[Rfam]
A member of the RNA family "Makes More Granules Regulator RNA (mmgR)" from Sphingobium fontiphilum, 77 nucleotides long. The source organism's lineage runs through Bacteria, Pseudomonadati, Pseudomonadota, Sphingomonadales and Sphingobium.
RNA sequence: GGAAAGGGCCUUUCAGGCAUCCUCUCCUAAAACUCUCCGGGCCGGUCCUCUUUGGAUCGGCCUUUUUUUGUCUCAUG
Number, nucleotide and partner (000 for none) at each position: 001g000002g000003a000004a000005a000006g000007g000008g018009c017010c016011u015012u000013u000014c000015a011016g010017g009018c008019a000020u000021c000022c000023u000024c000025u000026c000027c000028u000029a000030a000031a000032a000033c000034u000035c000036u000037c000038c000039g000040g062041g061042c060043c059044g058045g057046u056047c055048c054049u000050c000051u000052u000053u000054g048055g047056a046057u045058c044059g043060g042061c041062c040063u000064u000065u000066u000067u000068u000069u000070g000071u000072c000073u000074c000075a000076u000077g000
About this RNA: Its Rfam clan is "suhB sRNA clan". From the family's description: SuhB later renamed mmgR (makes more granules regulator) was a putative non-coding RNA found multiple times in the Agrobacterium tumefaciens genome and related alpha-proteobacteria.